RNA sequence: GCUGCGUACUUACCUACUAUCUAGUAGCUGAAAUACAUGUAUCUCACCUACUGUAUAGUAGGUAAGUACGCGGUUU
Number, nucleotide and partner (000 for none) at each position: 001g074002c073003u072004g071005c070006g069007u068008a067009c066010u065011u064012a063013c062014c061015u060016a000017c058018u057019a056020u055021c000022u053023a052024g051025u050026a049027g048028c000029u046030g045031a044032a000033a042034u041035a040036c000037a000038u000039g000040u035041a034042u033043c000044u031045c030046a029047c000048c027049u026050a025051c024052u023053g022054u000055a020056u019057a018058g017059u000060a015061g014062g013063u012064a011065a010066g009067u008068a007069c006070g005071c004072g003073g002074u001075u000076u000
Rfam assigns this 76-nucleotide sequence from Ameiurus melas to the family "mir-7563 microRNA precursor family". NCBI's taxonomy places the organism under Eukaryota, Teleostomi, Osteoglossocephalai, Characiphysae, Ameiurus. It scores 85 bits against the family's covariance model. The family's consensus secondary structure was predicted with RNAalifold. Gene Ontology terms of the family: RISC complex and miRNA-mediated post-transcriptional gene silencing.